[Rfam]
RNA: malK-I RNA
Organism: Lawsonibacter faecis
RNA sequence: ACAGGCGGUACGGGACUACUCCAUUCACGGGUACGUCCGUGCCCGAAAUAGGCCCGUCUCGCCGUAAAAAAGGAGGAGACCAAAACCCGCCGGGCCGGCGGUGCGGCAGUGUGGAGACCUGCCGUAAAGCGUGCGGGGUGUCGCUCCCUGCCCGCAAGACUGUAUUUGCAGAGGCUUUGCAGUCACGGCCUUGUACAUGGCA
Numbered sequence: 001a002c003a004g005g006c007g008g009u010a011c012g013g014g015a016c017u018a019c020u021c022c023a024u025u026c027a028c029g030g031g032u033a034c035g036u037c038c039g040u041g042c043c044c045g046a047a048a049u050a051g052g053c054c055c056g057u058c059u060c061g062c063c064g065u066a067a068a069a070a071a072g073g074a075g076g077a078g079a080c081c082a083a084a085a086c087c088c089g090c091c092g093g094g095c096c097g098g099c100g101g102u103g104c105g106g107c108a109g110u111g112u113g114g115a116g117a118c119c120u121g122c123c124g125u126a127a128a129g130c131g132u133g134c135g136g137g138g139u140g141u142c143g144c145u146c147c148c149u150g151c152c153c154g155c156a157a158g159a160c161u162g163u164a165u166u167u168g169c170a171g172a173g174g175c176u177u178u179g180c181a182g183u184c185a186c187g188g189c190c191u192u193g194u195a196c197a198u199g200g201c202a
Base pairs, nucleotide, nucleotide: 006061007060008059010057011056012055013054014053016051017050018049087101088100089099090098092191093190094189095188096187097186102126103125104124105123106122107121108120109119111118112117129155130154131153133151134150135149136148137147158184159183160182161181162180163179164178168175169174